[Rfam]
RNA sequence: UCUUUAGUAGCUCAGCGGUUAGAGCAAAUGGCUGUUAACUAUUGGGUCGUUGGUUCGAAUCCAACCUAGAGAG
Numbered sequence: 001u002c003u004u005u006a007g008u009a010g011c012u013c014a015g016c017g018g019u020u021a022g023a024g025c026a027a028a029u030g031g032c033u034g035u036u037a038a039c040u041a042u043u044g045g046g047u048c049g050u051u052g053g054u055u056c057g058a059a060u061c062c063a064a065c066c067u068a069g070a071g072a073g
Base pairs, nucleotide, nucleotide: 001072002071003070004069005068006067007066010025011024012023013022027043028042029041030040031039049065050064051063052062053061
RNA: tRNA